The record is an 86-nucleotide RNA from Glycine soja, which matches "Small nucleolar RNA SNORD25" in Rfam. It scores 68 bits against the family's covariance model. Its family is annotated with nucleolus and RNA processing in the Gene Ontology. The organism belongs to Glycine subgen. Soja, within Eukaryota. Rfam classes the family as a C/D-box small nucleolar RNA.
RNA sequence: UUUAACUGUGAUGAGCCCAACAGACCUGUAAUGGUUUUGCGGGUAUGAUCGCAAUCAUUAAUGAACAUCUAAGGGACUGAGUUAAG
Numbered sequence: 001u002u003u004a005a006c007u008g009u010g011a012u013g014a015g016c017c018c019a020a021c022a023g024a025c026c027u028g029u030a031a032u033g034g035u036u037u038u039g040c041g042g043g044u045a046u047g048a049u050c051g052c053a054a055u056c057a058u059u060a061a062u063g064a065a066c067a068u069c070u071a072a073g074g075g076a077c078u079g080a081g082u083u084a085a086g
Stems, first nucleotide, its partner, number of pairs: 002085005